[Rfam]
RNA: SAM riboswitch aptamer (S box leader)
Organism: Fonticella tunisiensis
RNA sequence: CUCUUAUCAAGAGAGGUGGAGGGACUGGCCCUAUGAAGCCCGGCAACCAGCACGUAUGUGCAGUGGUGCCAAUUCCGACAGCAUAAUUUAUUAUGCUGAAAGAUGAGAG
Numbered sequence: 001c002u003c004u005u006a007u008c009a010a011g012a013g014a015g016g017u018g019g020a021g022g023g024a025c026u027g028g029c030c031c032u033a034u035g036a037a038g039c040c041c042g043g044c045a046a047c048c049a050g051c052a053c054g055u056a057u058g059u060g061c062a063g064u065g066g067u068g069c070c071a072a073u074u075c076c077g078a079c080a081g082c083a084u085a086a087u088u089u090a091u092u093a094u095g096c097u098g099a100a101a102g103a104u105g106a107g108a109g
Stems, first nucleotide, its partner, number of pairs: 001109008013041001015040003021031003026077003042070004047066002050061003074101001079098006
Dot-bracket structure: ((((((((....(.(((...(((..[[[)))......))))((((.((.(((......)))...))))))...(]]].((((((........))))))..)))))))))